[Rfam]
RNA sequence: AAAGUACUAUAGCAGCACAUCAUGGUUUACAUACUAUAGUCAAGAUGCGAAUCAUUAUUUGCUGCUCUAGAAAUUUAA
Numbered sequence: 001a002a003a004g005u006a007c008u009a010u011a012g013c014a015g016c017a018c019a020u021c022a023u024g025g026u027u028u029a030c031a032u033a034c035u036a037u038a039g040u041c042a043a044g045a046u047g048c049g050a051a052u053c054a055u056u057a058u059u060u061g062c063u064g065c066u067c068u069a070g071a072a073a074u075u076u077a078a
Stems, first nucleotide, its partner, number of pairs: 001076002009068001011066007019058002022055007030047003